[Rfam]
RNA sequence: AUUGCGGCGGCUUCUAAUUCGCUUGGUGCAGGUCGGGAACUUUCUCCGCCGCCGCUAGAUGCGGCAAUCCUUGCUUUUAACUCCGGUGGAUAAAUCAAGUUCCCGUCUUGCAUCAACUGAAUCGGAGACCGAAGUGAAU
Numbered sequence: 001a002u003u004g005c006g007g008c009g010g011c012u013u014c015u016a017a018u019u020c021g022c023u024u025g026g027u028g029c030a031g032g033u034c035g036g037g038a039a040c041u042u043u044c045u046c047c048g049c050c051g052c053c054g055c056u057a058g059a060u061g062c063g064g065c066a067a068u069c070c071u072u073g074c075u076u077u078u079a080a081c082u083c084c085g086g087u088g089g090a091u092a093a094a095u096c097a098a099g100u101u102c103c104c105g106u107c108u109u110g111c112a113u114c115a116a117c118u119g120a121a122u123c124g125g126a127g128a129c130c131g132a133a134g135u136g137a138a139u
Base pairs, nucleotide, nucleotide: 013126014125017122018121019120020119023116024115025114026113027112028111029110030109031108032107034105035104036103037102038101040099041098

A member of the RNA family "MIR168 microRNA precursor family" from Salvia splendens, 139 nucleotides long. On this family, see Rhoades et al., Cell 2002: "Prediction of plant microRNA targets". The match comes from Rfam's covariance-model search (96 bits).